The family of this 74-nucleotide sequence from Alligator sinensis is "Mammalian CPEB3 ribozyme". It scores 37 bits against the family's covariance model. The literature on the family includes a 2006 paper in Science by Salehi-Ashtiani et al., "A genomewide search for ribozymes reveals an HDV-like sequence in the human CPEB3 gene". Rfam describes the family as follows. The mammalian CPEB3 ribozyme is a self cleaving RNA located in the second intron of the CPEB3 gene which belongs to a family of genes regulating messenger RNA polyadenylation.

RNA sequence: AGUGCCAUAAUGACCAUAGGAGAAGCGCUCACAUCACAGCCUUACAAGAUUCUAACGAAUCUGCAAAUUCUGCU
Numbered sequence: 001a002g003u004g005c006c007a008u009a010a011u012g013a014c015c016a017u018a019g020g021a022g023a024a025g026c027g028c029u030c031a032c033a034u035c036a037c038a039g040c041c042u043u044a045c046a047a048g049a050u051u052c053u054a055a056c057g058a059a060u061c062u063g064c065a066a067a068u069u070c071u072g073c074u
Stems, first nucleotide, its partner, number of pairs: 010042001012041001014039001018074002021071004025037001027035001047062006